[Rfam]
Description
This 129-nucleotide sequence from Acidipropionibacterium virtanenii belongs to the Rfam family "ALIL pseudoknot". Pairs were carried over by alignment from the consensus structure, which is taken from published work. Rfam classes the family as a cis-regulatory element. The organism belongs to Acidipropionibacterium, within Bacteria.
RNA sequence: GGCUUUUUUCGCGGCGGAGCUCGACCGCCCACAGCGUUGAUCGUUCAGUUCAUCGACCGGCACAAGCACGAGUUCGGCGUCGAGCCGAUCUGCCGCACGCUCACCGCAGCGGGCACCCAGAUCGGGCCG
Numbered sequence: 001g002g003c004u005u006u007u008u009u010c011g012c013g014g015c016g017g018a019g020c021u022c023g024a025c026c027g028c029c030c031a032c033a034g035c036g037u038u039g040a041u042c043g044u045u046c047a048g049u050u051c052a053u054c055g056a057c058c059g060g061c062a063c064a065a066g067c068a069c070g071a072g073u074u075c076g077g078c079g080u081c082g083a084g085c086c087g088a089u090c091u092g093c094c095g096c097a098c099g100c101u102c103a104c105c106g107c108a109g110c111g112g113g114c115a116c117c118c119a120g121a122u123c124g125g126g127c128c129g
Stems, first nucleotide, its partner, number of pairs: 013029005075129004086124002089121004
Dot-bracket structure: ............(((((.......))))).............................................((((.......((.((((.........................)))).)).))))